[Rfam]
RNA sequence: GCUGCUCAGAAAUGCACACUGCGACUGGUGAGCAGUAGGUGAUGUUUAUCAAAGGAUAAGCGGCUAAGAUGUAGAA
Dot-bracket structure: (((((((..........(((......))))))))))......((((((((....))))))))..............

Annotation: This 76-nucleotide RNA from Ruminococcus sp. 5_1_39BFAA belongs to the Rfam family "HDV ribozyme from F. prausnitzii". The literature on the family includes a 2009 paper in Science by Webb et al., "Widespread occurrence of self-cleaving ribozymes". Rfam links the family to the GO term catalytic activity. Taxonomically the source falls in Ruminococcus (Bacteria, Bacillati, Bacillota, Clostridia). It is one of the family's seed sequences.